[Rfam]
RNA sequence: AAUAUCCAGGUUUCAAAGGCAAAAAGUCGUUCGUGCUUGCACGAUAAGACUUUUAGACUUGGAAACCGCCAGACAUGAGGAAGUAGCGAUUUACGAAGUAAAUCAGCGGAUUCCGAAUGGCUGGAGGAUUGCGGGAGCGAAGCGUAGCAAUCCGUAGAUAUG
Dot-bracket structure: .(((((...((((..(((.(.(((((((.((((((....))))).).))))))).).)))..))))..((((.(((..((((...(((((((((...))))))).))...))))..))).)))).(((((((....((...))...)))))))...))))).
Numbered sequence: 001a002a003u004a005u006c007c008a009g010g011u012u013u014c015a016a017a018g019g020c021a022a023a024a025a026g027u028c029g030u031u032c033g034u035g036c037u038u039g040c041a042c043g044a045u046a047a048g049a050c051u052u053u054u055a056g057a058c059u060u061g062g063a064a065a066c067c068g069c070c071a072g073a074c075a076u077g078a079g080g081a082a083g084u085a086g087c088g089a090u091u092u093a094c095g096a097a098g099u100a101a102a103u104c105a106g107c108g109g110a111u112u113c114c115g116a117a118u119g120g121c122u123g124g125a126g127g128a129u130u131g132c133g134g135g136a137g138c139g140a141a142g143c144g145u146a147g148c149a150a151u152c153c154g155u156a157g158a159u160a161u162g
Stems, first nucleotide, its partner, number of pairs: 002161005010066004016060003020056001022054007030046001031044005069124004074119003079114004086107002088104007126153007137143002
Description: This 162-nucleotide sequence from Blautia wexlerae belongs to the Rfam family "Clostridiales-1 RNA". The family's RNA type in Rfam is small RNA. It scores 116 bits against the family's covariance model.